[Rfam]
RNA sequence: UUAACAGUAAUGUUGAGGAUGGAGGCAGUGGUGUAGCAAUUCUUUCGAAUGUAUGAACAGAAAUCUGAUAUAAGGCUAAAUGAUGGAUGAGAUUGCUAUCCAAACCUAAGUUCAAAAGGUAAAUGUAAAACCAAGAUAGUAAAUCAGGGCGUUGUGAAAGAAACAGGAUUUGU
Numbered sequence: 001u002u003a004a005c006a007g008u009a010a011u012g013u014u015g016a017g018g019a020u021g022g023a024g025g026c027a028g029u030g031g032u033g034u035a036g037c038a039a040u041u042c043u044u045u046c047g048a049a050u051g052u053a054u055g056a057a058c059a060g061a062a063a064u065c066u067g068a069u070a071u072a073a074g075g076c077u078a079a080a081u082g083a084u085g086g087a088u089g090a091g092a093u094u095g096c097u098a099u100c101c102a103a104a105c106c107u108a109a110g111u112u113c114a115a116a117a118g119g120u121a122a123a124u125g126u127a128a129a130a131c132c133a134a135g136a137u138a139g140u141a142a143a144u145c146a147g148g149g150c151g152u153u154g155u156g157a158a159a160g161a162a163a164c165a166g167g168a169u170u171u172g173u
Stems, first nucleotide, its partner, number of pairs: 001016006031171001037166001041161005047155001048153005064148006075140003081133001082131001084129001085113004091106001093104002
Shown here is a 173-nucleotide RNA from Thomasclavelia cocleata, a member of the family "Group II catalytic intron D1-D4-3". Gene Ontology term of the family: Group II intron splicing. A search with the family's covariance model found it, with a score of 78 bits. Pairs were carried over by alignment from the consensus structure. About the family: Group II introns are found in rRNA, tRNA and mRNA of organelles in fungi, plants and protists, and also in mRNA in bacteria.